[Rfam]
RNA sequence: CCUCUCGCCUUCCCUCCCUGAGGCGAGGCCUUAUACAAGCAAGGCAAUUCCCCCGGUUUACUCCCCUUUAACCGGGGGCUUUCUUAU
Numbered sequence: 001c002c003u004c005u006c007g008c009c010u011u012c013c014c015u016c017c018c019u020g021a022g023g024c025g026a027g028g029c030c031u032u033a034u035a036c037a038a039g040c041a042a043g044g045c046a047a048u049u050c051c052c053c054c055g056g057u058u059u060a061c062u063c064c065c066c067u068u069u070a071a072c073c074g075g076g077g078g079c080u081u082u083c084u085u086a087u
Base pairs, nucleotide, nucleotide: 004027005026006025007024008023009022028045029044030043031042032041034039051077052076053075054074055073056072057071058070

Shown here is an 87-nucleotide RNA sequence from Nitrosomonas halophila, a member of the family "Burkholderia RNA 7 (anti-hemB)". This RNA motif was identified by computational search in b-proteobacteria Burkholderia. The literature on the family includes a 2007 paper in Nucleic Acids Res by Weinberg et al., "Identification of 22 candidate structured RNAs in bacteria using the CMfinder comparative genomics pipeline". The match comes from Rfam's covariance-model search (51 bits).